Annotation:
Small nucleolar RNA SNORA25: a 126-nucleotide RNA from Urocitellus parryii. The base pairs follow the family's consensus structure, which was predicted with RNAfold. Rfam links the family to the GO terms RNA processing and nucleolus. Lineage of the source: Eukaryota > Metazoa > Euarchontoglires > Sciuridae > Urocitellus. It is annotated as an H/ACA-box small nucleolar RNA. ACA25 is a member of the H/ACA class of snoRNA that guide the sites of modification of uridines to pseudouridines.
RNA sequence: AGGUCAUUUCAAAGAAGGUUUAUGGGGCUAUGAAACCAGGAGCUAAUAUUAUGACCAAAGAUUAAAUUUCUCCCUAGGGCAUUAGAGUCCCUGAAUAGUGCUGUGUUUUUCUGAGGAAAUAUAAGA
Dot-bracket structure: .((((((.........(((((.(..((........)).))))))......))))))............(.(((..((((....(.((.(.((....)).))).)....))))..))).).......